About this RNA: Shown here is a 154-nucleotide RNA sequence from Marinimicrobium koreense, a member of the family "Molybdenum/Tungsten riboswitch aptamer (Moco RNA motif)". Rfam links the family to the GO terms tungstate binding, regulation of gene expression and molybdenum ion binding. The family has 160 seed sequences and 1,248 matches in Rfam 15.1. Pairs were carried over by alignment from the consensus structure, which is taken from published work.
[Rfam]
RNA sequence: ACCAUACACUCACACCGAGCCCAUUGACCUAAGGCAACGCUAGGGUCCAUGGGCCGUUACCCUCUCACCCAACCGGGUGAGCCGAGGUAACCGGGGCCGUUCGGGAAACCGGGCCGCCUCCCGCGCUUGGAAAGGUGUUUCUAUGCUGACUGAC
Dot-bracket structure: ..((.......(((((..((((((.((((...(((...)))..)))).)))))).(((((..........................)))))..((((.((((((....)))))).))))((.......))...)))))........))......

NCBI's taxonomy places the organism under Bacteria, Pseudomonadati, Gammaproteobacteria, Cellvibrionaceae, Marinimicrobium. The match comes from Rfam's covariance-model search (80 bits).